Source information:
A member of the RNA family "Guanidine-II riboswitch aptamer (mini-ykkC)" from Steroidobacter denitrificans, 49 nucleotides long. It scores 40 bits against the family's covariance model.
RNA sequence: GGACGAGGACGACCUCGGCCGUUUGUGCCUUGUACCGGGGACGGCCCCG
Numbered sequence: 001g002g003a004c005g006a007g008g009a010c011g012a013c014c015u016c017g018g019c020c021g022u023u024u025g026u027g028c029c030u031u032g033u034a035c036c037g038g039g040g041a042c043g044g045c046c047c048c049g
Stems, first nucleotide, its partner, number of pairs: 001020002004017005036049005

The family's consensus secondary structure is taken from published work.